RNA sequence: AAUUAUACUAGUAGUGGGCAUUGCUCUUGCUUAGUUGGUCAGAUCUGAAAAGAAGCAGCCAGAGUAAGAUUCUGUGGGUCAUUACUAGUAUCGUUGCUU
Numbered sequence: 001a002a003u004u005a006u007a008c009u010a011g012u013a014g015u016g017g018g019c020a021u022u023g024c025u026c027u028u029g030c031u032u033a034g035u036u037g038g039u040c041a042g043a044u045c046u047g048a049a050a051a052g053a054a055g056c057a058g059c060c061a062g063a064g065u066a067a068g069a070u071u072c073u074g075u076g077g078g079u080c081a082u083u084a085c086u087a088g089u090a091u092c093g094u095u096g097c098u099u
Stems, first nucleotide, its partner, number of pairs: 005091004011085006019076003023072001025069007035062005044053003